[Rfam]
Nucleotides: 087
Stems, first nucleotide, its partner, number of pairs: 017069006024062002028058004034053004
Number, partner (000 for none) and nucleotide at each position: 001000c002000u003000g004000u005000g006000a007000c008000u009000c010000c011000u012000g013000g014000g015000c016000u017069u018068c019067c020066c021065u022064u023000u024062g025061u026000c027000a028058u029057c030056c031055u032000a033000u034053g035052c036051c037050u038000g039000g040000g041000a042000c043000u044000c045000a046000g047000a048000c049000a050037a051036g052035g053034c054000a055031g056030g057029g058028a059000c060000a061025g062024c063000a064022a065021a066020g067019g068018g069017a070000a071000g072000c073000c074000c075000a076000g077000c078000u079000g080000u081000c082000g083000c084000a085000c086000c087000u